[Rfam]
RNA sequence: GACCGAUUAAACCCUUCCACCACCUCCUCGUGGUAUCGGCUGGUAACAAGGCCCUGAUGGACCUUGGCUAACGGUGGGGG
Numbered sequence: 001g002a003c004c005g006a007u008u009a010a011a012c013c014c015u016u017c018c019a020c021c022a023c024c025u026c027c028u029c030g031u032g033g034u035a036u037c038g039g040c041u042g043g044u045a046a047c048a049a050g051g052c053c054c055u056g057a058u059g060g061a062c063c064u065u066g067g068c069u070a071a072c073g074g075u076g077g078g079g080g
Stems, first nucleotide, its partner, number of pairs: 013080004018076004022034003047066005053060002
Source information: Shown here is an 80-nucleotide sequence from Sinocyclocheilus grahami, a member of the family "drz-agam-1 ribozyme". The organism belongs to Sinocyclocheilus, within Eukaryota. Rfam links the family to the GO term catalytic activity. The match comes from Rfam's covariance-model search (40 bits). Pairs were carried over by alignment from the consensus structure, which is taken from published work.